[Rfam]
RNA: MIR403 microRNA precursor family
RNA sequence: GCACAUCUCAAGUUUGUGCGUGAAUCAAACCCCAUCGUAGCCGUCCAUAUCUUCGGGUACUAAUCACGGGGCGAUUCGACGCCGUUAGAUUCACGCACAAACUCGUGAUCUGUCC
Numbered sequence: 001g002c003a004c005a006u007c008u009c010a011a012g013u014u015u016g017u018g019c020g021u022g023a024a025u026c027a028a029a030c031c032c033c034a035u036c037g038u039a040g041c042c043g044u045c046c047a048u049a050u051c052u053u054c055g056g057g058u059a060c061u062a063a064u065c066a067c068g069g070g071g072c073g074a075u076u077c078g079a080c081g082c083c084g085u086u087a088g089a090u091u092c093a094c095g096c097a098c099a100a101a102c103u104c105g106u107g108a109u110c111u112g113u114c115c
Stems, first nucleotide, its partner, number of pairs: 001113003005109003011103016028086003033081001043072001045070001